[Rfam]
RNA sequence: UAGGGCGUAACCGAAAACCCUUGAUCAGAGUAGGCA
Numbered sequence: 001u002a003g004g005g006c007g008u009a010a011c012c013g014a015a016a017a018c019c020c021u022u023g024a025u026c027a028g029a030g031u032a033g034g035c036a
Base pairs, nucleotide, nucleotide: 002021003020004019005018011034012033

The record is a 36-nucleotide sequence from Sphingobacterium sp. 21, which matches "DUF805b RNA" in Rfam.